[Rfam]
Nucleotides: 293
Stems, first nucleotide, its partner, number of pairs: 001045003004023006011016001028042003048291004054285003059280003063276002066273008078265004083260003087256001089254003093251005099243008107232002110230001112228003116223005122217003125162004130157007138149004164168001170213005181204003188197003
Number, partner (000 for none) and nucleotide at each position: 001045g002044c003043c004023g005022g006021g007020c008019a009018u010000a011016u012000u013000g014000g015000u016011g017000a018009a019008u020007g021006c022005c023004u024000g025000u026000a027000a028042g029041c030040c031000a032000g033000a034000c035000u036000u037000c038000u039000g040030g041029g042028c043003g044002g045001c046000u047000a048291g049290a050289g051288u052000u053000c054285a055284g056283g057000g058000a059280u060279g061278a062000c063276u064275c065000a066273u067272u068271c069270a070269u071268c072267g073266g074000g075000u076000u077000c078265c079264a080263u081262c082000u083260c084259c085258a086000u087256a088000g089254c090253a091252a092000c093251a094250u095249c096248u097247u098000c099243a100242u101241u102240u103239c104238a105237g106236u107232c108231c109000a110230a111000u112228c113227u114226g115000a116223g117222c118221g119220c120219a121000g122217c123216g124215u125162c126161a127160a128159c129000a130157g131156c132155c133154u134153a135152a136151g137000c138149c139148a140147c141146u142000g143000g144000a145000a146141g147140g148139u149138g150000a151136c152135u153134u154133a155132g156131g157130c158000g159128g160127u161126u162125g163000u164168u165000u166000a167000a168164g169000a170213a171212g172211g173210g174209g175000g176000c177000a178000a179000c180000g181204c182203c183202u184000c185000a186000g187000g188197c189196u190195g191000g192000c193000a194000a195190c196189a197188g198000a199000g200000c201000a202183g203182g204181g205000a206000a207000a208000a209174c210173u211172c212171c213170u214000c215124g216123c217122g218000g219120u220119g221118c222117g223116c224000g225000g226114c227113a228112g229000u230110u231108g232107g233000a234000u235000a236106g237105c238104u239103g240102g241101a242100a243099u244000a245000a246000u247097g248096g249095g250094a251093u252091u253090u254089g255000a256087u257000g258085u259084g260083g261000u262081g263080a264079u265078g266073c267072c268071g269070g270069u271068g272067g273066a274000a275064g276063g277000u278061u279060c280059a281000g282000a283056c284055c285054u286000u287000c288051g289050c290049u291048c292000g293000u
This 293-nucleotide sequence from Spizellomyces punctatus belongs to the Rfam family "Metazoan signal recognition particle RNA". The family's consensus secondary structure is taken from published work. The literature on the family includes a 2002 paper in Nucleic Acids Res by Regalia et al., "Prediction of signal recognition particle RNA genes". Rfam classes the family as a non-coding RNA gene. Taxonomically the source falls in Spizellomyces punctatus (Eukaryota, Fungi, chytridiomyceta, Chytridiomycotina). Rfam describes the family as follows. The signal recognition particle (SRP) is a universally conserved ribonucleoprotein. It is involved in the co-translational targeting of proteins to membranes. The eukaryotic SRP consists of a 300-nucleotide 7S RNA and six proteins: SRPs 72, 68, 54, 19, 14, and 9. Archaeal SRP consists of a 7S RNA and homologues of the eukaryotic SRP19 and SRP54 proteins. Rfam 15.1 lists 383,523 matches to the family in 1,221 species.